[Rfam]
RNA sequence: AUGGUGAAAGGCAGCGUCCAUAAAAAUAGACGCGCCCUGGAACAUCAGACCGUUGAACGCUUUGACCACGGAUGUACUGGCACUGACGAAAAACGGAUGGAAAGGUCGGGCUCGCCCGGCCUUUUUGUUU
Numbered sequence: 001a002u003g004g005u006g007a008a009a010g011g012c013a014g015c016g017u018c019c020a021u022a023a024a025a026a027u028a029g030a031c032g033c034g035c036c037c038u039g040g041a042a043c044a045u046c047a048g049a050c051c052g053u054u055g056a057a058c059g060c061u062u063u064g065a066c067c068a069c070g071g072a073u074g075u076a077c078u079g080g081c082a083c084u085g086a087c088g089a090a091a092a093a094c095g096g097a098u099g100g101a102a103a104g105g106u107c108g109g110g111c112u113c114g115c116c117c118g119g120c121c122u123u124u125u126u127g128u129u130u
Base pairs, nucleotide, nucleotide: 001045002044004043005042012039013038014033015032016031051095052094053093054092058088059087060085063082064081066080067079068078096129097128098127099126100125101124102123103122104121105120106119107118108117109116
Dot-bracket structure: ((.((......(((((..............)))....))..)))).....((((...(((..((.(((.........)))))..).))...))))((((((((((((((......)))))))))))))).
Alphaproteobacterial sRNA ar35: a 130-nucleotide sequence from Agrobacterium fabrum. It is annotated as a small RNA. NCBI's taxonomy places the organism under Bacteria, Pseudomonadati, Pseudomonadota, Rhizobiaceae, Agrobacterium fabrum. A reference for the family is del Val et al. (2012), "A survey of sRNA families in alpha-proteobacteria", RNA Biol.